[Rfam]
RNA sequence: GCCGCCGCUCCGGGGUGCACUUGCUGUGCUGAGAUGGCCGACAGGCCGAACCCGCGAACUUGAUCCGGUUCAUGCCGGCGGAAGGAGAGCAACAUCCAGUCCC
Numbered sequence: 001g002c003c004g005c006c007g008c009u010c011c012g013g014g015g016u017g018c019a020c021u022u023g024c025u026g027u028g029c030u031g032a033g034a035u036g037g038c039c040g041a042c043a044g045g046c047c048g049a050a051c052c053c054g055c056g057a058a059c060u061u062g063a064u065c066c067g068g069u070u071c072a073u074g075c076c077g078g079c080g081g082a083a084g085g086a087g088a089g090c091a092a093c094a095u096c097c098a099g100u101c102c103c
Base pairs, nucleotide, nucleotide: 007090008089009088010087011054012053013052014051016048017029018028019027020026036047037046038045039044059084060083061082065078066077067076068075
The family of this 103-nucleotide RNA sequence from Caldimonas thermodepolymerans is "TPP riboswitch aptamer (THI element)".
It scores 66 bits against the family's covariance model.
The source organism's lineage runs through Bacteria, Pseudomonadati, Pseudomonadota, Sphaerotilaceae and Caldimonas.